[Rfam]
RNA sequence: ACCAUCUCCCAUAUUGUAUAUAGUAGGGUAUGGAUCCGAAGCCUCUUCAAGGUUAACAUAGGCUCUCCACACCCCACUUAGACACAAUACGUCCCCGGCAUACAGAAUGGUAUGUCUCUCCAAAAAUCUGAGCUUGGGUAUACGGGGAAACCGAAUCCCAUGGGAAGAUGGGUGAUAUGGCUAAAUUGAGAGGG
Numbered sequence: 001a002c003c004a005u006c007u008c009c010c011a012u013a014u015u016g017u018a019u020a021u022a023g024u025a026g027g028g029u030a031u032g033g034a035u036c037c038g039a040a041g042c043c044u045c046u047u048c049a050a051g052g053u054u055a056a057c058a059u060a061g062g063c064u065c066u067c068c069a070c071a072c073c074c075c076a077c078u079u080a081g082a083c084a085c086a087a088u089a090c091g092u093c094c095c096c097g098g099c100a101u102a103c104a105g106a107a108u109g110g111u112a113u114g115u116c117u118c119u120c121c122a123a124a125a126a127u128c129u130g131a132g133c134u135u136g137g138g139u140a141u142a143c144g145g146g147g148a149a150a151c152c153g154a155a156u157c158c159c160a161u162g163g164g165a166a167g168a169u170g171g172g173u174g175a176u177a178u179g180g181c182u183a184a185a186u187u188g189a190g191a192g193g194g
Base pairs, nucleotide, nucleotide: 011108012107014105015104016103017102027074028073029071031069032068033067034066036062037061078194079193083190085188086187087186088185089101091099093110094109112178113177114176115175116174118172120171121170126169127168128167129166134155135154137152138151139150157164158163
RNA: drz-agam-2-2 ribozyme
Organism: Anopheles stephensi